RNA sequence: CUAUAACAUUUUUGUAAGUCGCUCUGGAUAAGAGCGUCUGCUAAAUUACGUAAA
Numbered sequence: 001c002u003a004u005a006a007c008a009u010u011u012u013u014g015u016a017a018g019u020c021g022c023u024c025u026g027g028a029u030a031a032g033a034g035c036g037u038c039u040g041c042u043a044a045a046u047u048a049c050g051u052a053a054a
Stems, first nucleotide, its partner, number of pairs: 013043001014041003020036006
RNA: UnaL2 LINE 3' element
Organism: Salmo trutta